[Rfam]
RNA sequence: UUUCGGCUUUUUUUCAAUGCUAAUUUGUGAACUCGGUCAGGCCUGGAAGGGAGCAGCCGUAGCAGAUGAUGCAUGUGAGAGAGUUUAGCUGUUAAAG
Numbered sequence: 001u002u003u004c005g006g007c008u009u010u011u012u013u014u015c016a017a018u019g020c021u022a023a024u025u026u027g028u029g030a031a032c033u034c035g036g037u038c039a040g041g042c043c044u045g046g047a048a049g050g051g052a053g054c055a056g057c058c059g060u061a062g063c064a065g066a067u068g069a070u071g072c073a074u075g076u077g078a079g080a081g082a083g084u085u086u087a088g089c090u091g092u093u094a095a096a097g
Stems, first nucleotide, its partner, number of pairs: 004091005009083006015075001017074004023067006034059004042051003
Source information
Bacterial small signal recognition particle RNA: a 97-nucleotide RNA sequence from Paraphotobacterium marinum. Gene Ontology terms of the family: SRP-dependent cotranslational protein targeting to membrane, signal sequence recognition and signal recognition particle, plasma membrane targeting. Lineage of the source: Bacteria > Pseudomonadati > Vibrionales > Vibrionaceae > Paraphotobacterium. A search with the family's covariance model found it, with a score of 71 bits. Clan: SRP clan. By type it is a non-coding RNA gene.